[Rfam]
RNA sequence: GUCAUGGGGAUUGCGAUCUCCCCACGAGGCGACAUGCCCAAGCAUCGCAUCCGCUCUAAACCCCUACGGAUGCAUCAUG
Numbered sequence: 001g002u003c004a005u006g007g008g009g010a011u012u013g014c015g016a017u018c019u020c021c022c023c024a025c026g027a028g029g030c031g032a033c034a035u036g037c038c039c040a041a042g043c044a045u046c047g048c049a050u051c052c053g054c055u056c057u058a059a060a061c062c063c064c065u066a067c068g069g070a071u072g073c074a075u076c077a078u079g
Stems, first nucleotide, its partner, number of pairs: 005024006047073006
RNA: chrB-a RNA